[Rfam]
RNA sequence: AUUGCAGAAGGGCAAACCCGUGCGAAAGCCGGGGUCGCAAAGCCUCCGGUCUACCGCCGGCCCACCCGGGCCGCGCCACGAUAGCGGGGUUGCCAGU
Numbered sequence: 001a002u003u004g005c006a007g008a009a010g011g012g013c014a015a016a017c018c019c020g021u022g023c024g025a026a027a028g029c030c031g032g033g034g035u036c037g038c039a040a041a042g043c044c045u046c047c048g049g050u051c052u053a054c055c056g057c058c059g060g061c062c063c064a065c066c067c068g069g070g071c072c073g074c075g076c077c078a079c080g081a082u083a084g085c086g087g088g089g090u091u092g093c094c095a096g097u
Stems, first nucleotide, its partner, number of pairs: 012038002017033004022029002041091004046087003049082003056076002
A member of the RNA family "c-di-GMP-I riboswitch aptamer" from Inhella proteolytica, 97 nucleotides long. Rfam's curators write: GEMM was predicted in a large-scale screen for bacterial structured RNA regulatory elements.